[Rfam]
RNA: Group II catalytic intron D1-D4-1
Organism: Bacillus aquiflavi
RNA sequence: AAAAUCUUGUAGUGAUACAAGACUGGAUAGUGAGAAGUCAGCAGAGGCCGUAGUAGUGAAGACGUCUAACGAAAGCUAGAAAGAGCGAAGGGC
Numbered sequence: 001a002a003a004a005u006c007u008u009g010u011a012g013u014g015a016u017a018c019a020a021g022a023c024u025g026g027a028u029a030g031u032g033a034g035a036a037g038u039c040a041g042c043a044g045a046g047g048c049c050g051u052a053g054u055a056g057u058g059a060a061g062a063c064g065u066c067u068a069a070c071g072a073a074a075g076c077u078a079g080a081a082a083g084a085g086c087g088a089a090g091g092g093c
Stems, first nucleotide, its partner, number of pairs: 002024001005022007038045002047093003056086002065080003